RNA sequence: AUAUAACAUCUGAUCAGGCAAUGCCAUAGGCAUGUAGCCGGGCCAUUUGGCAGCGGUAUAAUCCAAAAGGAUUCCGUGGGACAGAA
Number, nucleotide and partner (000 for none) at each position: 001a000002u000003a000004u000005a000006a000007c000008a000009u085010c084011u083012g082013a000014u000015c080016a000017g039018g038019c037020a000021a033022u032023g031024c030025c029026a000027u000028a000029g025030g024031c023032a022033u021034g000035u000036a000037g019038c018039c017040g000041g000042g051043c050044c049045a000046u000047u000048u000049g044050g043051c042052a000053g077054c076055g075056g074057u000058a072059u000060a000061a000062u000063c000064c000065a000066a000067a000068a000069g000070g000071a000072u058073u000074c056075c055076g054077u053078g000079g000080g015081a000082c012083a011084g010085a009086a000

Notes:
This 86-nucleotide RNA from Candidatus Xianfuyuplasma coldseepsis belongs to the Rfam family "NiCo (Nickel/Cobalt) riboswitch aptamer". Gene Ontology terms of the family: metal ion homeostasis and cobalt ion binding. It scores 52 bits against the family's covariance model. The family is grouped with related families in Rfam's "NiCo_riboswitches". Pairs were carried over by alignment from the consensus structure, which is taken from published work.